Rfam assigns this 253-nucleotide RNA from Xylanibacillus composti to the family "BsrG".
A search with the family's covariance model found it, with a score of 78 bits.
It is annotated as a small RNA.
bsrE, bsrG and bsrH pair through intermolecular interactions with antisense sRNAs. They form type I toxin/antitoxin system that includes an mRNA encoding for a short, toxic peptide (bsrE, bsrG and bsrH) and an antitoxin that is comprised of an antisense RNA. bsrG encodes a 39-amino-acid toxin, and the 180 nucleotide antisense sRNA called SR4 acts as the antitoxin (they overlap by 123 nucleotides). SR4 interaction with the 3'UTR of bsrG RNA promotes bsrG degradation and inhibits its translation.
RNA sequence: UACAGCAGAAUAGGCUUAUAGGGCGGUCGGCUAGUCUCCCGGAAGGGGGAUGAUGCCCAUGGAGGUAUUUCAAGCGCUUCAGCUGAUGCUCCUUUUUGGGAUGUUUAUUCUGGCGCUGCUGACGUACCUGAAAAAGAAAUAGACCGCCCUCGGCAAAGGAUACGGUCUAUCUUCGUGAUCAGUCUUUUGUUUUGAGCCUACCGCCCUUAAAGGCGGCUGCUGUGUAGAACCGUAGGUGUUCCCGCACCUGAGG
Number, nucleotide and partner (000 for none) at each position: 001u224002a223003c222004a221005g220006c000007a218008g000009a000010a000011u216012a199013g198014g197015c196016u195017u194018a000019u000020a150021g149022g148023g147024c000025g144026g000027u142028c000029g000030g000031c000032u053033a000034g051035u000036c049037u048038c047039c046040c045041g000042g000043a000044a000045g040046g039047g038048g037049g036050a000051u034052g000053a032054u000055g000056c000057c000058c000059a000060u000061g123062g000063a000064g120065g119066u118067a117068u000069u000070u000071c000072a000073a000074g089075c088076g087077c000078u000079u000080c000081a000082g000083c000084u000085g000086a000087u076088g075089c074090u000091c000092c000093u000094u000095u000096u000097u000098g000099g114100g000101a000102u000103g000104u000105u000106u000107a000108u000109u000110c000111u000112g000113g000114c099115g000116c000117u067118g066119c065120u064121g000122a000123c061124g000125u000126a000127c000128c000129u000130g000131a000132a000133a000134a000135a000136g000137a000138a000139a000140u000141a000142g027143a000144c025145c000146g000147c023148c022149c021150u020151c000152g000153g000154c175155a173156a172157a000158g000159g000160a000161u000162a000163c000164g000165g000166u000167c000168u000169a000170u000171c000172u156173u155174c000175g154176u000177g000178a000179u000180c000181a000182g000183u000184c000185u000186u000187u000188u000189g000190u000191u000192u000193u000194g017195a016196g015197c014198c013199u012200a000201c000202c215203g214204c213205c212206c000207u000208u000209a000210a000211a000212g205213g204214c203215g202216g011217c000218u007219g000220c005221u004222g003223u002224g001225u000226a000227g000228a000229a000230c253231c252232g000233u250234a249235g248236g247237u246238g245239u244240u000241c000242c000243c000244g239245c238246a237247c236248c235249u234250g233251a000252g231253g230